[Rfam]
RNA sequence: ACAUGGUAAUGAGAUUUUGGCGGGCCCUUCUCUGUGGGCUGCUCAGUGGACCUACGCCAGAGUAACUGGAGCCUCGAAACAUUGCCCAGCCCCUCACCUGUGGGCUGUGAGUACUGAAAGGGCUUGUACAGUG
Numbered sequence: 001a002c003a004u005g006g007u008a009a010u011g012a013g014a015u016u017u018u019g020g021c022g023g024g025c026c027c028u029u030c031u032c033u034g035u036g037g038g039c040u041g042c043u044c045a046g047u048g049g050a051c052c053u054a055c056g057c058c059a060g061a062g063u064a065a066c067u068g069g070a071g072c073c074u075c076g077a078a079a080c081a082u083u084g085c086c087c088a089g090c091c092c093c094u095c096a097c098c099u100g101u102g103g104g105c106u107g108u109g110a111g112u113a114c115u116g117a118a119a120g121g122g123c124u125u126g127u128a129c130a131g132u133g
Base pairs, nucleotide, nucleotide: 002056004054005052006051007050015048017046018045019044020043023040024039025037026036070125071124073122074121080116081115085111087107088106089105090104091103092102

Annotation:
Shown here is a 133-nucleotide sequence from Pteropus vampyrus, a member of the family "Small nucleolar RNA SNORA42/SNORA80 family". The literature on the family includes a 2006 paper in RNA by Schattner et al., "A computational screen for mammalian pseudouridylation guide H/ACA RNAs". Rfam's curators write: The members of this family belong to the H/ACA class of snoRNAs that guide the sites of modification of uridines to pseudouridines. Human ACA42 (SNORA42) was cloned from HeLa cells by immunoprecipitation with anti-GAR1 antibody. Its is predicted to guide the pseudouridylation of residues U109 and U572 of 18S rRNA. ACA42 shares the same host gene with ACA26, ACA46, ACA50. The match comes from Rfam's covariance-model search (70 bits). Pairs were carried over by alignment from the consensus structure, which was predicted with RNAalifold. It is annotated as an H/ACA-box small nucleolar RNA.